RNA sequence: CCUCCAUUUCUUGGCAUACAUGUGGUUGUUUAGUACUCAUGUGUGUUAUGUACGGAGGAAAAUCAAAGGCAGCGCUAUGUCUUCGGUGCCGGUGUGUAUUUGAAUCAUCCGGUUCUAUCCUCAAACGCUGUCACAUUG
Numbered sequence: 001c002c003u004c005c006a007u008u009u010c011u012u013g014g015c016a017u018a019c020a021u022g023u024g025g026u027u028g029u030u031u032a033g034u035a036c037u038c039a040u041g042u043g044u045g046u047u048a049u050g051u052a053c054g055g056a057g058g059a060a061a062a063u064c065a066a067a068g069g070c071a072g073c074g075c076u077a078u079g080u081c082u083u084c085g086g087u088g089c090c091g092g093u094g095u096g097u098a099u100u101u102g103a104a105u106c107a108u109c110c111g112g113u114u115c116u117a118u119c120c121u122c123a124a125a126c127g128c129u130g131u132c133a134c135a136u137u138g
Stems, first nucleotide, its partner, number of pairs: 001058005015045006022038001024037003070130005089112004094108003
This 138-nucleotide RNA from Oryzias latipes belongs to the Rfam family "Small nucleolar RNA SNORA57". Rfam's curators write: U99 belongs to the H/ACA class of snoRNAs which are thought to guide the sites of modification of uridines to pseudouridines, the target for this family is unknown. On this family, see Vitali et al., Nucleic Acids Res 2003: "Identification of 13 novel human modification guide RNAs". Rfam links the family to the GO terms RNA processing and nucleolus. NCBI's taxonomy places the organism under Eukaryota, Teleostomi, Teleostei, Oryziinae, Oryzias.